[Rfam]
RNA sequence: CGAGGUUUUAUGAUGAUACACUUCCAAAUGCAUAGUUCAUCUGACUAUUCAUGAUGAAAACUUUCCUUCACAAGUCUUUCGCUCCCAUCUGAUCAUACCUCU
Numbered sequence: 001c002g003a004g005g006u007u008u009u010a011u012g013a014u015g016a017u018a019c020a021c022u023u024c025c026a027a028a029u030g031c032a033u034a035g036u037u038c039a040u041c042u043g044a045c046u047a048u049u050c051a052u053g054a055u056g057a058a059a060a061c062u063u064u065c066c067u068u069c070a071c072a073a074g075u076c077u078u079u080c081g082c083u084c085c086c087a088u089c090u091g092a093u094c095a096u097a098c099c100u101c102u
Stems, first nucleotide, its partner, number of pairs: 004099003008095001
Rfam assigns this 102-nucleotide RNA from Tolypocladium paradoxum to the family "Small nucleolar RNA snR60/Z15/Z230/Z193/J17". Rfam 15.1 lists 3,592 matches to the family in 1,855 species. The literature on the family includes a 2004 paper in Curr Biol by Tycowski et al., "Guide RNAs with 5' caps and novel box C/D snoRNA-like domains for modification of snRNAs in metazoa". Rfam links the family to the GO terms RNA processing and nucleolus. It is annotated as a C/D-box small nucleolar RNA.